RNA: DUF3800-VIII RNA
RNA sequence: AUGCCCUGUUUUCUCCGAACGCUCAAGUGCUACUUGGGCCAUUGAUGUAGGAGGAAACGGGGGCAU
Numbered sequence: 001a002u003g004c005c006c007u008g009u010u011u012u013c014u015c016c017g018a019a020c021g022c023u024c025a026a027g028u029g030c031u032a033c034u035u036g037g038g039c040c041a042u043u044g045a046u047g048u049a050g051g052a053g054g055a056a057a058c059g060g061g062g063g064c065a066u
Stems, first nucleotide, its partner, number of pairs: 001066004005061008014052003021039008